A member of the RNA family "Small nucleolar RNA R21" from Durio zibethinus, 78 nucleotides long. Gene Ontology terms of the family: RNA processing and nucleolus. Taxonomically the source falls in Durio (Eukaryota, Tracheophyta, Magnoliopsida, Mesangiospermae). It scores 57 bits against the family's covariance model. For this family Rfam cites "Identification of 66 box C/D snoRNAs in Arabidopsis thaliana: extensive gene duplications generated multiple isoforms predicting new ribosomal RNA 2'-O-methylation sites" (Barneche et al., J Mol Biol, 2001).
RNA sequence: CAUCCUUGUGAAGAAUCAUUUUAAAAAAUUUAAAGUAGUGGACCGAUAUUAAUUGAUAAGUAAUGAAUCUGAGGGAUG
Numbered sequence: 001c002a003u004c005c006u007u008g009u010g011a012a013g014a015a016u017c018a019u020u021u022u023a024a025a026a027a028a029u030u031u032a033a034a035g036u037a038g039u040g041g042a043c044c045g046a047u048a049u050u051a052a053u054u055g056a057u058a059a060g061u062a063a064u065g066a067a068u069c070u071g072a073g074g075g076a077u078g
Base pairs, nucleotide, nucleotide: 001078002077003076004075005074006073
Dot-bracket structure: ((((((..................................................................))))))